[Rfam]
RNA sequence: ACCAAGCUAAAAUGUGCUGACUCCGCCCCGUGAUGUAAUACCGUACGGUGGUUCCACGGGGCUUGGAGGGAGUCGGGGGUGGCUUUAGUGGGUAAGAAUCCCACACGCUGGCGUGUCCAGGCCAGUGUCUUUUGAAGAUUUCCACCUCCUCAAAA
Numbered sequence: 001a002c003c004a005a006g007c008u009a010a011a012a013u014g015u016g017c018u019g020a021c022u023c024c025g026c027c028c029c030g031u032g033a034u035g036u037a038a039u040a041c042c043g044u045a046c047g048g049u050g051g052u053u054c055c056a057c058g059g060g061g062c063u064u065g066g067a068g069g070g071a072g073u074c075g076g077g078g079g080u081g082g083c084u085u086u087a088g089u090g091g092g093u094a095a096g097a098a099u100c101c102c103a104c105a106c107g108c109u110g111g112c113g114u115g116u117c118c119a120g121g122c123c124a125g126u127g128u129c130u131u132u133u134g135a136a137g138a139u140u141u142c143c144a145c146c147u148c149c150u151c152a153a154a155a
Stems, first nucleotide, its partner, number of pairs: 026061006063153004075149008088104005106127006
Background:
A member of the RNA family "R2 RNA element" from Hermetia illucens, 155 nucleotides long. The family's RNA type in Rfam is cis-regulatory element. The literature on the family includes a 2004 paper in RNA by Ruschak et al., "Secondary structure models of the 3' untranslated regions of diverse R2 RNAs". About the family: This family represents the 3' UTR region of the R2 retrotransposable element. This family is known to interact with the R2-encoded reverse transcriptase in a reaction known as target primed reverse transcription (TPRT). Lineage of the source: Eukaryota > Bilateria > Protostomia > Panarthropoda > Hermetia. Its family is annotated with regulation of reverse transcription in the Gene Ontology.